The record is a 413-nucleotide sequence from Monosiga brevicollis, which matches "Nuclear RNase P" in Rfam. The family has 116 seed sequences and 3,848 matches in Rfam 15.1.
[Rfam]
Nucleotides: 413
Stems, first nucleotide, its partner, number of pairs: 001413004007407003012358006020133007142397005151334004161175005176192006193330007213312002360384005
Number, partner (000 for none) and nucleotide at each position: 001413g002412u003411g004410g005000u006000g007407g008406a009405g010000a011000g012358c013357u014356u015355g016354c017353a018000u019000g020133u021132g022131g023130g024129g025128u026127a027000a028000c029000a030000c031000a032000c033000u034000g035000a036000c037000c038000g039000u040000c041000c042000a043000g044000c045000g046000u047000c048000u049000g050000a051000c052000a053000u054000u055000c056000g057000u058000g059000u060000u061000a062000c063000g064000a065000u066000g067000u068000u069000g070000u071000g072000u073000g074000c075000g076000g077000u078000c079000c080000c081000c082000u083000u084000g085000u086000c087000g088000u089000c090000c091000g092000c093000g094000u095000c096000u097000c098000u099000g100000c101000c102000c103000g104000u105000a106000a107000g108000g109000g110000u111000a112000a113000a114000g115000g116000c117000g118000u119000a120000g121000g122000c123000g124000a125000a126000c127026u128025g129024c130023c131022c132021c133020g134000g135000g136000g137000a138000a139000g140000g141000u142397c143396u144395g145394a146393g147000a148000g149000g150000a151334g152333a153332g154331c155000a156000a157000c158000c159000u160000c161175c162174c163173c164172u165171c166000g167000u168000g169000a170000g171165g172164a173163g174162g175161g176192c177191g178190g179189u180188c181187a182000u183000a184000a185000u186000g187181u188180g189179g190178c191177u192176g193330c194329a195328u196327g197326g198325c199324u200000u201000a202000c203000c204000a205000g206000c207000a208000a209000c210000g211000u212000g213312a214311c215000a216000u217000g218000u219000u220000g221000u222000a223000c224000g225000u226000c227000a228000c229000g230000c231000g232000c233000c234000u235000g236000a237000g238000c239000g240000g241000u242000c243000u244000u245000g246000g247000u248000c249000g250000u251000c252000g253000u254000g255000g256000a257000g258000g259000c260000c261000a262000u263000g264000g265000g266000g267000g268000c269000u270000g271000g272000u273000a274000a275000c276000a277000g278000c279000c280000u281000g282000c283000g284000u285000g286000g287000u288000g289000g290000a291000g292000a293000c294000g295000u296000u297000u298000g299000u300000g301000a302000g303000u304000c305000g306000u307000u308000g309000g310000g311214g312213u313000u314000u315000g316000a317000a318000a319000c320000u321000u322000g323000g324199g325198g326197c327196u328195g329194u330193g331154g332153c333152u334151c335000a336000g337000c338000a339000a340000c341000u342000g343000g344000a345000g346000u347000u348000c349000a350000a351000u352000u353017u354016g355015c356014a357013a358012g359000g360384c361383a362382g363381g364380g365000c366000g367000c368000g369000g370000c371000u372000u373000u374000g375000g376000c377000c378000g379000u380364c381363c382362u383361u384360g385000g386000a387000a388000c389000a390000c391000a392000a393146u394145u395144c396143a397142g398000a399000c400000u401000a402000c403000u404000c405009c406008u407007c408000g409000a410004c411003c412002a413001c

Gene Ontology terms of the family: ribonuclease P activity, tRNA processing and ribonuclease P complex. The family's RNA type in Rfam is ribozyme. On this family, see Xiao et al., Annu Rev Biochem 2002: "Eukaryotic Ribonuclease P: A Plurality of Ribonucleoprotein Enzymes".